Record summary: small nucleolar RNA snoR137: a 152-nucleotide sequence from Macleaya cordata. A reference for the family is Chen and Wu (2009), "Mining small RNA sequencing data: a new approach to identify small nucleolar RNAs in Arabidopsis", Nucleic Acids Res.
RNA sequence: AUUGCUUCUUACAGGUGAACUCUCUUAUAUCUUUAAUUGGGGAUGUUCAUGUUUCAGAAGCAUAGAUAAAAUAGAAAAAUUUCUUGCCAGUAUUAAACAACAUGGUGUGCUCAUCUUCAUUGCCCCCAUGUUACCUGUCUCUUGGCAUAUCU
Numbered sequence: 001a002u003u004g005c006u007u008c009u010u011a012c013a014g015g016u017g018a019a020c021u022c023u024c025u026u027a028u029a030u031c032u033u034u035a036a037u038u039g040g041g042g043a044u045g046u047u048c049a050u051g052u053u054u055c056a057g058a059a060g061c062a063u064a065g066a067u068a069a070a071a072u073a074g075a076a077a078a079a080u081u082u083c084u085u086g087c088c089a090g091u092a093u094u095a096a097a098c099a100a101c102a103u104g105g106u107g108u109g110c111u112c113a114u115c116u117u118c119a120u121u122g123c124c125c126c127c128a129u130g131u132u133a134c135c136u137g138u139c140u141c142u143u144g145g146c147a148u149a150u151c152u
Base pairs, nucleotide, nucleotide: 003062004061005060006059007058008057016049017048018047019046020045021043022042023041024040025039086146087145088144089143090142092140099132100131101130103128104127105126107124

It is annotated as an H/ACA-box small nucleolar RNA. It scores 106 bits against the family's covariance model. Gene Ontology terms of the family: RNA processing and nucleolus.